A member of the RNA family "GA-cis RNA", 89 nucleotides long.
RNA sequence: CUAAGGAGGAACCGCUAUGCGCAAAGCGCAUAAUUGAAAAUCGGUUCCGACGACCUGCCGCUGAGCAUAAGCGAGGGUCGAUACAUAUU
Dot-bracket structure: .......((((((..((((((.....))))))..........))))))........(.(.((..((....))..))).)..........